[Rfam]
RNA sequence: UCGCAAUCCGCCAAUCGGUCGAGCCGUGUCGCGGAAGGUUCUUCAACCAGCCAAAGCCUUGGAAACCGGGGCAAGAGGUGAGCG
Numbered sequence: 001u002c003g004c005a006a007u008c009c010g011c012c013a014a015u016c017g018g019u020c021g022a023g024c025c026g027u028g029u030c031g032c033g034g035a036a037g038g039u040u041c042u043u044c045a046a047c048c049a050g051c052c053a054a055a056g057c058c059u060u061g062g063a064a065a066c067c068g069g070g071g072c073a074a075g076a077g078g079u080g081a082g083c084g
Base pairs, nucleotide, nucleotide: 002084003083004082007035008034009033010032011031016026017025018024019023037048038047039046040045050079051078052077056072057071058070059069060068061067062066